[Rfam]
The family of this 60-nucleotide RNA from Rhizobium johnstonii is "terC RNA". The family has 129 seed sequences and 1,112 matches in Rfam 15.1.

RNA sequence: CCGCUGGUCCGGGCCCCUCUGGCGAGAGCUUCGGCACUCUUGCGAUGUCGGACCCUUCUC
Numbered sequence: 001c002c003g004c005u006g007g008u009c010c011g012g013g014c015c016c017c018u019c020u021g022g023c024g025a026g027a028g029c030u031u032c033g034g035c036a037c038u039c040u041u042g043c044g045a046u047g048u049c050g051g052a053c054c055c056u057u058c059u060c
Stems, first nucleotide, its partner, number of pairs: 006054007022043007